[Rfam]
RNA: Makes More Granules Regulator RNA (mmgR)
RNA sequence: UCGUAACGCACUUCUUGGGCGUUUCCUCCCUAAACUCAAGGCCGCGCCUAUUGGCGCGGCCUUCUUUAUUUCCGGG
Numbered sequence: 001u002c003g004u005a006a007c008g009c010a011c012u013u014c015u016u017g018g019g020c021g022u023u024u025c026c027u028c029c030c031u032a033a034a035c036u037c038a039a040g041g042c043c044g045c046g047c048c049u050a051u052u053g054g055c056g057c058g059g060c061c062u063u064c065u066u067u068a069u070u071u072c073c074g075g076g
Stems, first nucleotide, its partner, number of pairs: 008020002011017001040061009